[Rfam]
RNA sequence: CUUCAUGACUCGGGGUGCCUACUUAAUCAGGCUGAGAAAUACCCGUAUUACCUGAACUGGAUAAUGCCAGCGUAGGAAAGUCACUCGCCUCACUA
Numbered sequence: 001c002u003u004c005a006u007g008a009c010u011c012g013g014g015g016u017g018c019c020u021a022c023u024u025a026a027u028c029a030g031g032c033u034g035a036g037a038a039a040u041a042c043c044c045g046u047a048u049u050a051c052c053u054g055a056a057c058u059g060g061a062u063a064a065u066g067c068c069a070g071c072g073u074a075g076g077a078a079a080g081u082c083a084c085u086c087g088c089c090u091c092a093c094u095a
Stems, first nucleotide, its partner, number of pairs: 006083005011045004016039001017032004051076004057070004

The family of this 95-nucleotide RNA sequence from bacteria symbiont BFo2 of Frankliniella occidentalis is "TPP riboswitch aptamer (THI element)". Its family is annotated with thiamine pyrophosphate binding in the Gene Ontology. A search with the family's covariance model found it, with a score of 72 bits.